[Rfam]
RNA sequence: ACUGCGGGGCGUCUCCUGUACUCCGGCUACUCGGAGGUCGGGAUUGGUGGAUGGUUUGAGGUUGGGAGUCCUGGUGCUGUGUGAUCCAUGUUGAUUGGACAUCCACACUAAGCCUGGUAUUAAUAUGGACCCCCCCGGAGAAGUCUGGGGGUGCAGGUUAACUAAGGAGGGGCAAAACGGGCCAGGGGGGAAACUCAGUAGUCAAAAGUCCCCCGUAUCGGGCAGUAGUGGGAUAGUGGCCGGGAGUGGACGCUCAGUAACAGCCCGACUAAUAGAAUCAGACCCGUUCCUUU
Number, nucleotide and partner (000 for none) at each position: 001a038002c037003u036004g017005c000006g015007g014008g013009g000010c000011g000012u000013c008014u007015c006016c000017u004018g000019u000020a000021c000022u035023c034024c033025g000026g000027c000028u000029a000030c000031u000032c000033g024034g023035a022036g003037g002038u001039c000040g291041g290042g289043a288044u000045u286046g285047g284048u000049g000050g000051a000052u280053g279054g278055u277056u276057u275058g000059a000060g270061g269062u268063u267064g266065g265066g264067a000068g000069u000070c000071c263072u262073g261074g000075u259076g258077c257078u256079g255080u000081g253082u252083g251084a000085u250086c249087c248088a247089u246090g000091u244092u000093g000094a000095u243096u242097g241098g240099a000100c238101a237102u236103c232104c231105a000106c230107a229108c228109u227110a226111a000112g223113c222114c221115u220116g219117g218118u217119a216120u215121u160122a159123a158124u157125a000126u155127g154128g000129a152130c151131c150132c000133c149134c148135c147136c000137g146138g145139a144140g000141a000142a000143g000144u139145c138146u137147g135148g134149g133150g131151g130152u129153g000154c127155a126156g000157g124158u123159u122160a121161a000162c166163u000164a000165a000166g162167g000168a000169g213170g212171g211172g209173c208174a000175a000176a000177a000178c000179g000180g203181g202182c201183c000184a000185g000186g000187g196188g195189g194190g000191a000192a000193a000194c189195u188196c187197a000198g000199u000200a000201g182202u181203c180204a000205a000206a000207a000208g173209u172210c000211c171212c170213c169214c000215g120216u119217a118218u117219c116220g115221g114222g113223c112224a000225g000226u110227a109228g108229u107230g106231g104232g103233a000234u000235a000236g102237u101238g100239g000240c098241c097242g096243g095244g091245a000246g089247u088248g087249g086250a085251c083252g082253c081254u000255c079256a078257g077258u076259a075260a000261c073262a072263g071264c066265c065266c064267g063268a062269c061270u060271a000272a000273u000274a000275g057276a056277a055278u054279c053280a052281g000282a000283c000284c047285c046286g045287u000288u043289c042290c041291u040292u000293u000
Shown here is a 293-nucleotide sequence from Parnassius apollo, a member of the family "Metazoan signal recognition particle RNA". The family's RNA type in Rfam is non-coding RNA gene. From the family's description: The signal recognition particle (SRP) is a universally conserved ribonucleoprotein. It is involved in the co-translational targeting of proteins to membranes. The organism belongs to Parnassius, within Eukaryota. The family's consensus secondary structure is taken from published work.